The record is an 87-nucleotide RNA from Triticum urartu, which matches "MIR1120/MIR1122 microRNA precursor family" in Rfam. Lineage of the source: Eukaryota > Poales > Triticodae > Triticeae > Triticum. Pairs were carried over by alignment from the consensus structure, which was predicted with RNAalifold. Its family is annotated with RISC complex and miRNA-mediated post-transcriptional gene silencing in the Gene Ontology. It scores 100 bits against the family's covariance model. Rfam 15.1 lists 44,765 matches to the family in 8 species.
[Rfam]
RNA sequence: GUACUCCCUCCGUAAAGUAUUAUAAGAGCGUUUAGAUCACUAAAGUAGUGAUCUAAACGCUCUUAUAAUACUUUACGGAGGGAGUAU
Numbered sequence: 001g002u003a004c005u006c007c008c009u010c011c012g013u014a015a016a017g018u019a020u021u022a023u024a025a026g027a028g029c030g031u032u033u034a035g036a037u038c039a040c041u042a043a044a045g046u047a048g049u050g051a052u053c054u055a056a057a058c059g060c061u062c063u064u065a066u067a068a069u070a071c072u073u074u075a076c077g078g079a080g081g082g083a084g085u086a087u
Base pairs, nucleotide, nucleotide: 003085004084005083007081008080009079010078011077013075014074015073016072017071019069020068021067022066023065024064025063026062027061028060029059030058031057032056033055034054035053036052037051038050039049040048041047